This 117-nucleotide RNA from Spongiibacter nanhainus belongs to the Rfam family "ALIL pseudoknot". On this family, see Mazauric et al., J Biol Chem 2008: "Apical loop-internal loop RNA pseudoknots: a new type of stimulator of -1 translational frameshifting in bacteria".
[Rfam]
RNA sequence: CGCUUUUUUCGCCCAGGCGGAGCUCGACCGCAAACCGAAGUAAUGUCGGCGUUUAUUGACCGGGAACGCGAGAAUCACGGUGUCGAGUCAAUCUGCAAAGUCUUGACGAUUUCGCCG
Numbered sequence: 001c002g003c004u005u006u007u008u009u010c011g012c013c014c015a016g017g018c019g020g021a022g023c024u025c026g027a028c029c030g031c032a033a034a035c036c037g038a039a040g041u042a043a044u045g046u047c048g049g050c051g052u053u054u055a056u057u058g059a060c061c062g063g064g065a066a067c068g069c070g071a072g073a074a075u076c077a078c079g080g081u082g083u084c085g086a087g088u089c090a091a092u093c094u095g096c097a098a099a100g101u102c103u104u105g106a107c108g109a110u111u112u113c114g115c116c117g
Base pairs, nucleotide, nucleotide: 017031018030019029020028078117079116080115081114082113090111092109093108096105097104098103
The base pairs follow the family's consensus structure, which is taken from published work. The family has 26 seed sequences and 2,146 matches in Rfam 15.1. It is annotated as a cis-regulatory element.